[Rfam]
RNA sequence: CCAUAACGCGUCUAGGGUUCCGACCGCUCGCGGUGUCUGGUCCAAGAGAUGCACUCCCGUCCGCCGGUCAACGGCGAACGGAGCCACGGCGGGAUAAAAGCCCGGGAGAG
Numbered sequence: 001c002c003a004u005a006a007c008g009c010g011u012c013u014a015g016g017g018u019u020c021c022g023a024c025c026g027c028u029c030g031c032g033g034u035g036u037c038u039g040g041u042c043c044a045a046g047a048g049a050u051g052c053a054c055u056c057c058c059g060u061c062c063g064c065c066g067g068u069c070a071a072c073g074g075c076g077a078a079c080g081g082a083g084c085c086a087c088g089g090c091g092g093g094a095u096a097a098a099a100g101c102c103c104g105g106g107a108g109a110g
Base pairs, nucleotide, nucleotide: 008052009051010050011049012048015043016042020040021039022037023034024033025032026031054083055082056081057080060077061076085105087108091103092102093101
Background
This 110-nucleotide sequence from Magnetospirillum gryphiswaldense belongs to the Rfam family "Guanidine-I riboswitch aptamer". Rfam's curators write: This family represents a conserved RNA structure found upstream of the ykkC and yxkD genes in Bacillus subtilis and related genes in other bacteria. The function of this family is unclear although it has been suggested that it may function to switch on efflux pumps and detoxification systems in response to harmful environmental molecules. Rfam links the family to the GO term regulation of gene expression. Lineage of the source: Bacteria > Pseudomonadati > Rhodospirillaceae > Magnetospirillum > Magnetospirillum gryphiswaldense MSR-1. A search with the family's covariance model found it, with a score of 78 bits.